The record is a 118-nucleotide sequence from Clostridium niameyense, which matches "FMN riboswitch aptamer (RFN element)" in Rfam. Its family is annotated with FMN binding in the Gene Ontology. Taxonomically the source falls in Clostridium (Bacteria, Bacillati, Clostridia, Eubacteriales). About the family: The RFN element is a highly conserved domain that is found frequently in the 5'-untranslated regions of prokaryotic mRNAs that encode for flavin mononucleotide (FMN) biosynthesis and transport proteins.
[Rfam]
RNA sequence: ACAAUCCUUCAGGGCGAGGUGUAAUUCCUCACCGGCGGUAAAGUCCGCGAGCUAUAUUAGCAUGAUUCGGUGCAAUUCCGAAACCGACAGUUAAAGUCUGGAUGAGAGAUAGGAUUAA
Numbered sequence: 001a002c003a004a005u006c007c008u009u010c011a012g013g014g015c016g017a018g019g020u021g022u023a024a025u026u027c028c029u030c031a032c033c034g035g036c037g038g039u040a041a042a043g044u045c046c047g048c049g050a051g052c053u054a055u056a057u058u059a060g061c062a063u064g065a066u067u068c069g070g071u072g073c074a075a076u077u078c079c080g081a082a083a084c085c086g087a088c089a090g091u092u093a094a095a096g097u098c099u100g101g102a103u104g105a106g107a108g109a110u111a112g113g114a115u116u117a118a
Stems, first nucleotide, its partner, number of pairs: 003116006009109002017029003031097002033086002035048004043084002053060001066082005088100003